[Rfam]
RNA: Purine riboswitch aptamer
Organism: Clostridium estertheticum
RNA sequence: AAAACGAAUAAUCAGUUCAUCGAUAUAUUUCUAGGGAAAUGGCUUAGAAGUUUCUACGAGAGGCCGUUAACUUCUCACUAUUGGUGAAUCUUGAAUUGAA
Numbered sequence: 001a002a003a004a005c006g007a008a009u010a011a012u013c014a015g016u017u018c019a020u021c022g023a024u025a026u027a028u029u030u031c032u033a034g035g036g037a038a039a040u041g042g043c044u045u046a047g048a049a050g051u052u053u054c055u056a057c058g059a060g061a062g063g064c065c066g067u068u069a070a071c072u073u074c075u076c077a078c079u080a081u082u083g084g085u086g087a088a089u090c091u092u093g094a095a096u097u098g099a100a
Base pairs, nucleotide, nucleotide: 018086019085020084021083022082023081024080025079029049030048031047032046033045034044035043058076059075060074061073062072063071